[Rfam]
RNA sequence: GCGCCCGUAGCUCAACCGGAUAGAGCAACGGCCUUCUAAGCCGUAGGUUGCAGGUUCGAGUCCUGCCGGGCGUG
Number, nucleotide and partner (000 for none) at each position: 001g073002c072003g071004c070005c069006c068007g067008u000009a000010g026011c025012u024013c023014a000015a000016c000017c000018g000019g000020a000021u000022a000023g013024a012025g011026c010027a000028a044029c043030g042031g041032c040033c000034u000035u000036c000037u000038a000039a000040g032041c031042c030043g029044u028045a000046g000047g000048u000049u000050g066051c065052a064053g063054g062055u000056u000057c000058g000059a000060g000061u000062c054063c053064u052065g051066c050067c007068g006069g005070g004071c003072g002073u001074g000